[Rfam]
RNA sequence: UUCGACAAUAGCAAACCUAGCGAAAGCCAGGGACGCAAAGCUAUGGGUCUUCCUGGAUACACUCCUGAUGAUCGCCAAGCUACCGAAG
Numbered sequence: 001u002u003c004g005a006c007a008a009u010a011g012c013a014a015a016c017c018u019a020g021c022g023a024a025a026g027c028c029a030g031g032g033a034c035g036c037a038a039a040g041c042u043a044u045g046g047g048u049c050u051u052c053c054u055g056g057a058u059a060c061a062c063u064c065c066u067g068a069u070g071a072u073c074g075c076c077a078a079g080c081u082a083c084c085g086a087a088g
Base pairs, nucleotide, nucleotide: 001088003085004084011036012035016031017030018029020027021026034074039081040080041079042078044077045076046075047072048071049070
Source information
c-di-GMP-I-GGC riboswitch aptamer: an 88-nucleotide RNA sequence from Desulfitobacterium hafniense. Its Rfam clan is "c-di-GMP_I riboswitch clan". For this family Rfam cites "Bioinformatic analysis of riboswitch structures uncovers variant classes with altered ligand specificity" (Weinberg et al., Proc Natl Acad Sci U S A, 2017).